[Rfam]
Overview: The family of this 143-nucleotide RNA from Vombatus ursinus is "MIR7725 microRNA precursor family". The source organism's lineage runs through Eukaryota, Deuterostomia, Teleostomi, Vombatidae and Vombatus. Gene Ontology terms of the family: miRNA-mediated post-transcriptional gene silencing and RISC complex. The family has 2 seed sequences and 30 matches in Rfam 15.1.
RNA sequence: UGCAGCCUCGAGGCCACAUGUGGCCCUCUAGGUCCUCAAGUGUGGCCCUUUGACUGAAUCCAAUAUUUGUUCUAUGAAGUUUGGAUUCAGUCAAAGGGCCGCACAUGAGGACCUGGAGGGCCACAUGUGGCCUCGAGGCUGCA
Numbered sequence: 001u002g003c004a005g006c007c008u009c010g011a012g013g014c015c016a017c018a019u020g021u022g023g024c025c026c027u028c029u030a031g032g033u034c035c036u037c038a039a040g041u042g043u044g045g046c047c048c049u050u051u052g053a054c055u056g057a058a059u060c061c062a063a064u065a066u067u068u069g070u071u072c073u074a075u076g077a078a079g080u081u082u083g084g085a086u087u088c089a090g091u092c093a094a095a096g097g098g099c100c101g102c103a104c105a106u107g108a109g110g111a112c113c114u115g116g117a118g119g120g121c122c123a124c125a126u127g128u129g130g131c132c133u134c135g136a137g138g139c140u141g142c143a
Base pairs, nucleotide, nucleotide: 002142003141005139006138007137008136009135010134012132013131014130015129016128017127018126020124021123022122023121024120025119026118027117028116029115030114031113032112033111034110035109036108037107042102043101044100045099047097048096049095050094051093052092053091054090055089056088057087058086060084061083065080066079068077
Dot-bracket structure: .((.((((((.(((((((.((((((((((((((((((....((((.((((((((((((.((...((.(........).))..)).)))))))))))).))))....)))))))))))))))))).))))))).)))))).)).